Shown here is a 331-nucleotide RNA from Muntiacus reevesi, a member of the family "7SK RNA".
Taxonomically the source falls in Muntiacus (Eukaryota, Eumetazoa, Tetrapoda, Pecora).
Rfam's curators write: 7SK was discovered as an abundant small nuclear RNA in the mid-70s but a possible function has only recently been suggested.
Rfam classes the family as a non-coding RNA gene.
RNA sequence: AGAUGUGAGGGCGAUCUCGUUGUGACAUCUGUCACCCCAUUGAUUGCCAGGGUUGAUUCGGCUGACCUGGCUGACUAGGUGGGUGUCCCCUUUCUCCCUCACAGCUCCAUGUGCGUCCCUCUGGAAGCUGCACGCUCAGUCAAAGAGGACUACCAUCCCCGAUACAGUAGGACUGAUAUUCGGUCAAGGGUAAACGAGUAGCUGCGCUCCCCUGCUAGAACCUUCAAACAAGCUCUCAAGGUUCAUUUGUAGGAGAACGUAGGGUAGUCAAGCUUCCAAGACUCCAGACACAUCCAAAUGAGGCGCUGCACGUGGCAGUCUGCUUUUCUAA
Numbered sequence: 001a002g003a004u005g006u007g008a009g010g011g012c013g014a015u016c017u018c019g020u021u022g023u024g025a026c027a028u029c030u031g032u033c034a035c036c037c038c039a040u041u042g043a044u045u046g047c048c049a050g051g052g053u054u055g056a057u058u059c060g061g062c063u064g065a066c067c068u069g070g071c072u073g074a075c076u077a078g079g080u081g082g083g084u085g086u087c088c089c090c091u092u093u094c095u096c097c098c099u100c101a102c103a104g105c106u107c108c109a110u111g112u113g114c115g116u117c118c119c120u121c122u123g124g125a126a127g128c129u130g131c132a133c134g135c136u137c138a139g140u141c142a143a144a145g146a147g148g149a150c151u152a153c154c155a156u157c158c159c160c161g162a163u164a165c166a167g168u169a170g171g172a173c174u175g176a177u178a179u180u181c182g183g184u185c186a187a188g189g190g191u192a193a194a195c196g197a198g199u200a201g202c203u204g205c206g207c208u209c210c211c212c213u214g215c216u217a218g219a220a221c222c223u224u225c226a227a228a229c230a231a232g233c234u235c236u237c238a239a240g241g242u243u244c245a246u247u248u249g250u251a252g253g254a255g256a257a258c259g260u261a262g263g264g265u266a267g268u269c270a271a272g273c274u275u276c277c278a279a280g281a282c283u284c285c286a287g288a289c290a291c292a293u294c295c296a297a298a299u300g301a302g303g304c305g306c307u308g309c310a311c312g313u314g315g316c317a318g319u320c321u322g323c324u325u326u327u328c329u330a331a
Base pairs, nucleotide, nucleotide: 002107003106005102006101007100008099009098010097011096013093014092019089024087025086026085027084028083029082030081031080032079033078036073037070038069039068042067044065045064046062047061048060116171117170119167120166122139124137125136127135128134140162141161147158148157149156201273202272203271207267208266210264211263212262213261214260215259222255223254224253225252228250229249230248231247232246298329300326301325302324303323304322305319306318307317308316309315